Shown here is a 77-nucleotide RNA from Chuhaivirus simiae, a member of the family "RAGATH-1 hammerhead ribozyme". For this family Rfam cites "New classes of self-cleaving ribozymes revealed by comparative genomics analysis" (Weinberg et al., Nat Chem Biol, 2015).

RNA sequence: AACUCAGCUUGGGAGAGUAUAAAAUGUGUACUGAUGAGACCAAGACGAAACUAUUUAUUGCAUUUAAUAGUAUACUC
Numbered sequence: 001a002a003c004u005c006a007g008c009u010u011g012g013g014a015g016a017g018u019a020u021a022a023a024a025u026g027u028g029u030a031c032u033g034a035u036g037a038g039a040c041c042a043a044g045a046c047g048a049a050a051c052u053a054u055u056u057a058u059u060g061c062a063u064u065u066a067a068u069a070g071u072a073u074a075c076u077c
Stems, first nucleotide, its partner, number of pairs: 002018004008044005026077001028075003038046001050071006057064001
Dot-bracket structure: .[[[[..(((((..]]]].......[.[[[.......[.))))).]...((((((.(......).)))))).]]].]